The record is a 78-nucleotide sequence from Diaphorina citri, which matches "mir-10 microRNA precursor family" in Rfam. The base pairs follow the family's consensus structure, which was predicted with PFOLD. For this family Rfam cites "microRNAs: tiny regulators with great potential" (Ambros, Cell, 2001).
RNA sequence: CGUAAUCUACCCUGUAGACCCGAGUUUUUGUUGCCUUUUUUAUCAACUCAGAAGCUCGUCUCUACAGGUAUCUUACGG
Numbered sequence: 001c002g003u004a005a006u007c008u009a010c011c012c013u014g015u016a017g018a019c020c021c022g023a024g025u026u027u028u029u030g031u032u033g034c035c036u037u038u039u040u041u042a043u044c045a046a047c048u049c050a051g052a053a054g055c056u057c058g059u060c061u062c063u064a065c066a067g068g069u070a071u072c073u074u075a076c077g078g
Stems, first nucleotide, its partner, number of pairs: 002076004010068002016063003021058010
Dot-bracket structure: .((((....((....(((..((((((((((..................))))))))))..)))...))....))))..
The source organism's lineage runs through Eukaryota, Opisthokonta, Protostomia, Ecdysozoa and Diaphorina.